[Rfam]
RNA: mir-2774 microRNA precursor family
Organism: Bombyx mori
RNA sequence: AAAAAAAAGACCGUCGGUCUACCGAGCAAUAUCACCCGCUCGGUGGAAGAUCUUCCCUCCGACGU
Numbered sequence: 001a002a003a004a005a006a007a008a009g010a011c012c013g014u015c016g017g018u019c020u021a022c023c024g025a026g027c028a029a030u031a032u033c034a035c036c037c038g039c040u041c042g043g044u045g046g047a048a049g050a051u052c053u054u055c056c057c058u059c060c061g062a063c064g065u
Stems, first nucleotide, its partner, number of pairs: 009055002013051003018047010